[Rfam]
RNA sequence: CCUUCUGUGCAGGUGGGGAUUGGUAGCAAUGCUGUGAUGCCUAGAGGUAUUGCACUUGUCCCGGCCUGUAGAGAGAUG
Numbered sequence: 001c002c003u004u005c006u007g008u009g010c011a012g013g014u015g016g017g018g019a020u021u022g023g024u025a026g027c028a029a030u031g032c033u034g035u036g037a038u039g040c041c042u043a044g045a046g047g048u049a050u051u052g053c054a055c056u057u058g059u060c061c062c063g064g065c066c067u068g069u070a071g072a073g074a075g076a077u078g
Base pairs, nucleotide, nucleotide: 004074005073006072009069010068011067012066013065014064016062017061018060019059020058022056023055024054026053027052028051029050030049031048032047033046
This 78-nucleotide sequence from Sphaeramia orbicularis belongs to the Rfam family "mir-92 microRNA precursor family". Rfam 15.1 lists 1,347 matches to the family in 653 species. This family represents the microRNA precursor mir-92. Human miR-92 has two predicted hairpin precursor sequences: mir-92-1 on chromosome 13 and mir-92-2 on chromosome X. miR-92 has also been cloned from mouse embryonic stem cells. The mature sequence is excised from the 3' arm of the hairpin. Rfam links the family to the GO terms miRNA-mediated post-transcriptional gene silencing and RISC complex. It scores 74 bits against the family's covariance model.